Annotation: The family of this 45-nucleotide sequence from Oreochromis niloticus is "Histone 3' UTR stem-loop". The base pairs follow the family's consensus structure, which is taken from published work.
RNA sequence: ACAACGGCUCUUUUAAGAGCCACCCACAAACCUCCAAAGAGUGUU
Numbered sequence: 001a002c003a004a005c006g007g008c009u010c011u012u013u014u015a016a017g018a019g020c021c022a023c024c025c026a027c028a029a030a031c032c033u034c035c036a037a038a039g040a041g042u043g044u045u
Base pairs, nucleotide, nucleotide: 006021007020008019009018010017011016